[Rfam]
Rfam assigns this 76-nucleotide RNA sequence from Parnassius apollo to the family "Mammalian CPEB3 ribozyme". The base pairs follow the family's consensus structure, which is taken from published work.

RNA sequence: CUAGCACUUUUGAUGUCAUUGUAGAAGCGUGCUCGUCGCGACCCCUGCCAGCCCUUUUCAGGGCUGCAAUUCUACA
Numbered sequence: 001c002u003a004g005c006a007c008u009u010u011u012g013a014u015g016u017c018a019u020u021g022u023a024g025a026a027g028c029g030u031g032c033u034c035g036u037c038g039c040g041a042c043c044c045c046u047g048c049c050a051g052c053c054c055u056u057u058u059c060a061g062g063g064c065u066g067c068a069a070u071u072c073u074a075c076a
Stems, first nucleotide, its partner, number of pairs: 012045001015042003020076007027039003049066007
Taxonomically the source falls in Parnassius (Eukaryota, Opisthokonta, Altocrustacea, Pterygota). From the family's description: The mammalian CPEB3 ribozyme is a self cleaving RNA located in the second intron of the CPEB3 gene which belongs to a family of genes regulating messenger RNA polyadenylation. This ribozyme is highly conserved and found only in mammals. The CPEB3 ribozyme is structurally and biochemically related to the human hepatitis delta virus (HDV) ribozyme and the HDV ribozyme is proposed to have arisen from the human transcriptome.